[Rfam]
Annotation:
mir-3154 microRNA precursor family: an 86-nucleotide RNA sequence from Macaca mulatta.
RNA sequence: AGGCCCCUCCUUCUCAGCCCCAGCUCCCGCUCACCCCUGCCACGUCAAAGGAGGCAGAAGGGGAGUUGGGAGCAGAGAGGGGACCA
Numbered sequence: 001a002g003g004c005c006c007c008u009c010c011u012u013c014u015c016a017g018c019c020c021c022a023g024c025u026c027c028c029g030c031u032c033a034c035c036c037c038u039g040c041c042a043c044g045u046c047a048a049a050g051g052a053g054g055c056a057g058a059a060g061g062g063g064a065g066u067u068g069g070g071a072g073c074a075g076a077g078a079g080g081g082g083a084c085c086a
Stems, first nucleotide, its partner, number of pairs: 002085002004082006012076003023073007030065003034062003037057005043051001
Gene Ontology terms of the family: miRNA-mediated post-transcriptional gene silencing and RISC complex.